[Rfam]
Nucleotides: 054
Stems, first nucleotide, its partner, number of pairs: 002053002007050002010047002013045002016041002019038002022035005
Number, partner (000 for none) and nucleotide at each position: 001000a002053a003052g004000g005000u006000g007050g008049c009000c010047u011046a012000u013045g014044c015000c016041a017040c018000u019038g020037c021000c022035a023034u024033g025032g026031a027000u028000u029000g030000g031026u032025u033024u034023a035022u036000a037020g038019c039000u040017g041016u042000c043000u044014g045013c046011u047010a048000c049008g050007c051000g052003u053002u054000c